[Rfam]
RNA: c-di-GMP-I riboswitch aptamer
Organism: Steroidobacter agaridevorans
RNA sequence: AUUUUUUCUGGGCAAACUCGCCGAAAGGCGAGGACGCAAAGCUUCCGGUCUAACGGAUUCAUUUCCUAAGACAGCGGGGUUGCCACG
Numbered sequence: 001a002u003u004u005u006u007u008c009u010g011g012g013c014a015a016a017c018u019c020g021c022c023g024a025a026a027g028g029c030g031a032g033g034a035c036g037c038a039a040a041g042c043u044u045c046c047g048g049u050c051u052a053a054c055g056g057a058u059u060c061a062u063u064u065c066c067u068a069a070g071a072c073a074g075c076g077g078g079g080u081u082g083c084c085a086c087g
Stems, first nucleotide, its partner, number of pairs: 012037002017032006040081004045077003048072003055066003